Source information:
c-di-AMP riboswitch aptamer (ydaO/yuaA leader): a 196-nucleotide RNA from Pseudofrankia asymbiotica.
RNA sequence: UCAGACCAAACGCCGAGUCCUGCCCCUGGUCUGAACACCCUCCGACAAGCCGGGGCAGGAGCGGGGGACCCAGGUCUCACCGGGCAACGCCGGGACACCGGCCGCGUCCUCGGGGUGAAGCUGCCGCAAGGCGGCCGGGUGGCGUGAACCCUGCCCGAACCCGACAGCUGACCUCGCAGGCGUCAGGGAAGGACGC
Numbered sequence: 001u002c003a004g005a006c007c008a009a010a011c012g013c014c015g016a017g018u019c020c021u022g023c024c025c026c027u028g029g030u031c032u033g034a035a036c037a038c039c040c041u042c043c044g045a046c047a048a049g050c051c052g053g054g055g056c057a058g059g060a061g062c063g064g065g066g067g068a069c070c071c072a073g074g075u076c077u078c079a080c081c082g083g084g085c086a087a088c089g090c091c092g093g094g095a096c097a098c099c100g101g102c103c104g105c106g107u108c109c110u111c112g113g114g115g116u117g118a119a120g121c122u123g124c125c126g127c128a129a130g131g132c133g134g135c136c137g138g139g140u141g142g143c144g145u146g147a148a149c150c151c152u153g154c155c156c157g158a159a160c161c162c163g164a165c166a167g168c169u170g171a172c173c174u175c176g177c178a179g180g181c182g183u184c185a186g187g188g189a190a191g192g193a194c195g196c
Base pairs, nucleotide, nucleotide: 011182012181013180014179018060019059020058021057022056023055024054025053026052061177062176063175064174065173066172071112113162114161115160121134122133123132124131137156138155139154140153
The literature on the family includes a 2004 paper in Proc Natl Acad Sci U S A by Barrick et al., "New RNA motifs suggest an expanded scope for riboswitches in bacterial genetic control". It scores 52 bits against the family's covariance model. Lineage of the source: Bacteria > Bacillati > Actinomycetes > Frankiaceae > Pseudofrankia. Its family is annotated with cyclic-di-AMP binding and regulation of gene expression in the Gene Ontology.